This 68-nucleotide sequence from Bacillus sp. V59.32b belongs to the Rfam family "Bacillaceae-1 RNA". Taxonomically the source falls in Bacillus (Bacteria, Bacillati, Bacillota, Bacilli). The family's RNA type in Rfam is small RNA. Pairs were carried over by alignment from the consensus structure, which is taken from published work.

RNA sequence: AUUAGAGGAACCUCGGCUAAAAUCUGCCACAUCGUGUGGCAAACGCCGACGCCAGCACAUCCUGUGCA
Numbered sequence: 001a002u003u004a005g006a007g008g009a010a011c012c013u014c015g016g017c018u019a020a021a022a023u024c025u026g027c028c029a030c031a032u033c034g035u036g037u038g039g040c041a042a043a044c045g046c047c048g049a050c051g052c053c054a055g056c057a058c059a060u061c062c063u064g065u066g067c068a
Stems, first nucleotide, its partner, number of pairs: 011051001013049005026040005055067004